[Rfam]
RNA sequence: AGGCCAUAGCAGUACUCAUAGCAGUAGGGUACUGUCAGAUUCCAAUGAAUCUGUGAAUUUUGCU
Numbered sequence: 001a002g003g004c005c006a007u008a009g010c011a012g013u014a015c016u017c018a019u020a021g022c023a024g025u026a027g028g029g030u031a032c033u034g035u036c037a038g039a040u041u042c043c044a045a046u047g048a049a050u051c052u053g054u055g056a057a058u059u060u061u062g063c064u
Base pairs, nucleotide, nucleotide: 003032004029005028008064009063010062011061012060014058015027016026036053037052038051039050040049041048042047
This 64-nucleotide sequence from Alligator sinensis belongs to the Rfam family "Mammalian CPEB3 ribozyme". About the family: The mammalian CPEB3 ribozyme is a self cleaving RNA located in the second intron of the CPEB3 gene which belongs to a family of genes regulating messenger RNA polyadenylation. This ribozyme is highly conserved and found only in mammals. The CPEB3 ribozyme is structurally and biochemically related to the human hepatitis delta virus (HDV) ribozyme and the HDV ribozyme is proposed to have arisen from the human transcriptome. There is currently only one other known self cleaving ribozyme in mammals, the CoTC motif.